The record is a 102-nucleotide RNA sequence from Bacillus sp. MUM 116, which matches "Purine riboswitch aptamer" in Rfam. Rfam links the family to the GO term purine nucleobase biosynthetic process.
RNA sequence: AAAGAAUUUGUCAUAUUGUGUCGUAUAAUAUUGGGGAUAUGGCCCAAAAGUUUCUACCGAGCUACCGUAAAUAGCUUGACUACGAGGCAAGUUUUUAAUAGA
Numbered sequence: 001a002a003a004g005a006a007u008u009u010g011u012c013a014u015a016u017u018g019u020g021u022c023g024u025a026u027a028a029u030a031u032u033g034g035g036g037a038u039a040u041g042g043c044c045c046a047a048a049a050g051u052u053u054c055u056a057c058c059g060a061g062c063u064a065c066c067g068u069a070a071a072u073a074g075c076u077u078g079a080c081u082a083c084g085a086g087g088c089a090a091g092u093u094u095u096u097a098a099u100a101g102a
Base pairs, nucleotide, nucleotide: 018088019087021085022084023083024082025081029049031047032046033045034044035043058078059077060076061075062074063073064072